[Rfam]
RNA sequence: CGUAUGGUUCCGAUCAAGAACAGAUAUCUUGGAUCGGGUGGCGAUACGGCCUGUGAUGAGGU
Numbered sequence: 001c002g003u004a005u006g007g008u009u010c011c012g013a014u015c016a017a018g019a020a021c022a023g024a025u026a027u028c029u030u031g032g033a034u035c036g037g038g039u040g041g042c043g044a045u046a047c048g049g050c051c052u053g054u055g056a057u058g059a060g061g062u
Stems, first nucleotide, its partner, number of pairs: 001048005007042002010037006
This 62-nucleotide sequence from Bowmanella pacifica belongs to the Rfam family "L31-Gammaproteobacteria ribosomal protein leader". The source organism's lineage runs through Bacteria, Pseudomonadati, Pseudomonadota, Alteromonadaceae and Bowmanella. Pairs were carried over by alignment from the consensus structure, which is taken from published work. It scores 43 bits against the family's covariance model. Its Rfam clan is "Ribosomal Protein L31 Leader clan". The literature on the family includes a 2020 paper in BMC Microbiol by Eckert and Weinberg, "Discovery of 20 novel ribosomal leader candidates in bacteria and archaea".